Background:
A member of the RNA family "Guanidine-I riboswitch aptamer" from Methylocella silvestris, 109 nucleotides long. Rfam links the family to the GO term regulation of gene expression.
RNA sequence: GACGUAGGCGGCUAGGGUUCCGAUCGCUUUUUUGCGGUGCUGGUCCGAGAGCUGCGAUCCAGCUGGGAGAAAUCGGCUGGAGGCACGGCGGGACAAAAGCCCGGGAGAC
Numbered sequence: 001g002a003c004g005u006a007g008g009c010g011g012c013u014a015g016g017g018u019u020c021c022g023a024u025c026g027c028u029u030u031u032u033u034g035c036g037g038u039g040c041u042g043g044u045c046c047g048a049g050a051g052c053u054g055c056g057a058u059c060c061a062g063c064u065g066g067g068a069g070a071a072a073u074c075g076g077c078u079g080g081a082g083g084c085a086c087g088g089c090g091g092g093a094c095a096a097a098a099g100c101c102c103g104g105g106a107g108a109c
Stems, first nucleotide, its partner, number of pairs: 008055005015046002020043002022040001023038005058081009084104001086107001090102003